CRISPR RNA direct repeat element: a 37-nucleotide RNA sequence from Geotalea uraniireducens. Rfam's curators put it in the seed alignment. Its family is annotated with defense response in the Gene Ontology.
[Rfam]
RNA sequence: GAAGCGCCCGCCUUCAAUGGCGGGCGAGGAUUGAAAC
Numbered sequence: 001g002a003a004g005c006g007c008c009c010g011c012c013u014u015c016a017a018u019g020g021c022g023g024g025c026g027a028g029g030a031u032u033g034a035a036a037c
Stems, first nucleotide, its partner, number of pairs: 005026008